[Rfam]
Source information
7SK RNA: a 331-nucleotide RNA sequence from Crocuta crocuta. From the family's description: 7SK was discovered as an abundant small nuclear RNA in the mid-70s but a possible function has only recently been suggested. Two independent studies have found that 7SK RNA binds the CDK9/cyclin T complex (known as elongation factor P-TEFb). P-TEFb activates transcription by phosphorylating the C-terminal domain of RNA polymerase II. This process is negatively regulated by the 7SK RNP. The secondary structure of 7SK RNA shown here was proposed by Wasserman and Steitz on the basis of chemical modification and enzymatic cleavage experiments. Its Rfam clan is "7SK clan". NCBI's taxonomy places the organism under Eukaryota, Bilateria, Craniata, Laurasiatheria, Crocuta. It scores 332 bits against the family's covariance model. The family's consensus secondary structure is taken from published work.
RNA sequence: GGAUGUGAGGGCAAUUUGGCUGAGACAUCUGUCACCCCAUUGAUCACCAGGGUUGAUUCAGUUGAUCUGGCUGUUGAGGCGGGUGUCCCCUUCCUCCCUCACUGCUCCACGUACAUCCCUCCUGAAGCUGUGUGCUCGGUUGAAGGGGACGACCUUCUUCAAUAGAGGAGGACCGUUCCUCAGUCAAGGGUAUACAAGUAGAUGUGCUCCCCUGCUAGAACUUCCAAACAAGCUCAAAAGGUCCAUUUGUAGGAGAACAUAGGGUAGUCAAGCUUCUAAGACUCCAGACACAUCCAAAUGAGGCACUGCAGGUGGCAGUCUGCCUUUCUUU
Dot-bracket structure: (((.(((((((..(...((....((((((((((..((((..((((((.............)).)))))))..)....)))))))))).)).)...)))))))...))).......((((((((((.((.....))))))(((....(((......))).)))..)))).)).............................(.(...((.(((((.......((((..(((((.............))))).))))....))))).))...).)......................(((.((((((((((.....)))))..)))))..)))